[Rfam]
RNA sequence: GGCGGUCUUCGGUAGUGGCUGCCGGGGUUCGUCCCCGGCAGCUUCGAUCGACGGCCGUA
Numbered sequence: 001g002g003c004g005g006u007c008u009u010c011g012g013u014a015g016u017g018g019c020u021g022c023c024g025g026g027g028u029u030c031g032u033c034c035c036c037g038g039c040a041g042c043u044u045c046g047a048u049c050g051a052c053g054g055c056c057g058u059a
Stems, first nucleotide, its partner, number of pairs: 002058006009051005017043011

Actino-pnp RNA: a 59-nucleotide RNA from Mycobacterium adipatum. The family's consensus secondary structure is taken from published work. The family's RNA type in Rfam is cis-regulatory element.